[Rfam]
RNA sequence: GGUAUCGUCCUACCUGCACAAUAUUAGAGUUUAGAAGUGCUUCUAAUACUGUCAGGUAAUGACGAUAGCC
Numbered sequence: 001g002g003u004a005u006c007g008u009c010c011u012a013c014c015u016g017c018a019c020a021a022u023a024u025u026a027g028a029g030u031u032u033a034g035a036a037g038u039g040c041u042u043c044u045a046a047u048a049c050u051g052u053c054a055g056g057u058a059a060u061g062a063c064g065a066u067a068g069c070c
Stems, first nucleotide, its partner, number of pairs: 001069001003067007011058006019051002022048007
RNA: mir-236 microRNA precursor family
Organism: Enterobius vermicularis